[Rfam]
RNA sequence: ACCACCGCAAGGGAGGGGAUUCCCCUCGGGUGUGGACGACACCCCGGCCCCA
Numbered sequence: 001a002c003c004a005c006c007g008c009a010a011g012g013g014a015g016g017g018g019a020u021u022c023c024c025c026u027c028g029g030g031u032g033u034g035g036a037c038g039a040c041a042c043c044c045c046g047g048c049c050c051c052a
Base pairs, nucleotide, nucleotide: 005047006046007045013027014026015025016024017023018022028044029043030042031041032040033039
Insect-Specific Flavivirus 3' UTR repeats Ra: a 52-nucleotide sequence from Quang Binh virus. 3' UTR in insect specific flavivirus families present three to four repeats of conserved element Ra. The base pairs follow the family's consensus structure, which was predicted with LocARNA. Clan: Insect-Specific Flavivirus 3' UTR repeats Ra and Rb elements. By type it is a cis-regulatory element.